[Rfam]
Shown here is a 453-nucleotide part of an RNA from Silurus meridionalis, a member of the family "Eukaryotic large subunit ribosomal RNA". A search with the family's covariance model found it, with a score of 2191 bits. Lineage of the source: Eukaryota > Vertebrata > Teleostomi > Neopterygii > Silurus.
RNA sequence: GAUGUGUUGUUGCAAUAGUAAUCCUGCUCAGUACGAGAGGAACUCCUCUGGCUGAGGAGCCACUGCACUGGCUGAGGAGCCACUGGUGCGAAGCUACCAUCUGUGGGAUUAUGACUGAACACCUCUAAGAGCUUGGAGAAAGCCCGUUCCACCUUAAAAUACAACCCCAUUUUACCCCAGAGUCCCGCAGGAAGGGCCAGCGGGUUGAAGUUAACUGGCAUAGGUGGGGCAACUUUCCUUUUUUUUAUUUCAGAAGUCCAAGUCCAAGAGCUUUGGUGCUCAAUCAGCGCAAACCAACUUCACUUAAAUAAUGAGAUGAAUAAAGUAUUUACAGUUCCAUAUCAUUUUAAAUAUAUUAAUAUAAUAAUUGAUGAAUAUUGUUUAUUAAACUUUUCUCAGCCCCUGCUUUAUAAAAUAAAAUAGGGUGAAUUACAUUUUUUACAGUUUGUGUGU
Numbered sequence: 001g002a003u004g005u006g007u008u009g010u011u012g013c014a015a016u017a018g019u020a021a022u023c024c025u026g027c028u029c030a031g032u033a034c035g036a037g038a039g040g041a042a043c044u045c046c047u048c049u050g051g052c053u054g055a056g057g058a059g060c061c062a063c064u065g066c067a068c069u070g071g072c073u074g075a076g077g078a079g080c081c082a083c084u085g086g087u088g089c090g091a092a093g094c095u096a097c098c099a100u101c102u103g104u105g106g107g108a109u110u111a112u113g114a115c116u117g118a119a120c121a122c123c124u125c126u127a128a129g130a131g132c133u134u135g136g137a138g139a140a141a142g143c144c145c146g147u148u149c150c151a152c153c154u155u156a157a158a159a160u161a162c163a164a165c166c167c168c169a170u171u172u173u174a175c176c177c178c179a180g181a182g183u184c185c186c187g188c189a190g191g192a193a194g195g196g197c198c199a200g201c202g203g204g205u206u207g208a209a210g211u212u213a214a215c216u217g218g219c220a221u222a223g224g225u226g227g228g229g230c231a232a233c234u235u236u237c238c239u240u241u242u243u244u245u246u247a248u249u250u251c252a253g254a255a256g257u258c259c260a261a262g263u264c265c266a267a268g269a270g271c272u273u274u275g276g277u278g279c280u281c282a283a284u285c286a287g288c289g290c291a292a293a294c295c296a297a298c299u300u301c302a303c304u305u306a307a308a309u310a311a312u313g314a315g316a317u318g319a320a321u322a323a324a325g326u327a328u329u330u331a332c333a334g335u336u337c338c339a340u341a342u343c344a345u346u347u348u349a350a351a352u353a354u355a356u357u358a359a360u361a362u363a364a365u366a367a368u369u370g371a372u373g374a375a376u377a378u379u380g381u382u383u384a385u386u387a388a389a390c391u392u393u394u395c396u397c398a399g400c401c402c403c404u405g406c407u408u409u410a411u412a413a414a415a416u417a418a419a420a421u422a423g424g425g426u427g428a429a430u431u432a433c434a435u436u437u438u439u440u441a442c443a444g445u446u447u448g449u450g451u452g453u
Stems, first nucleotide, its partner, number of pairs: 006233006013226001018219002021053001023051002026048001055102002058095002064090005069082005105216002112213005240355001242353001244351003359451005364379001367376001383443001385441001387439002389436001391434001393429002396427001399426004404422002407419005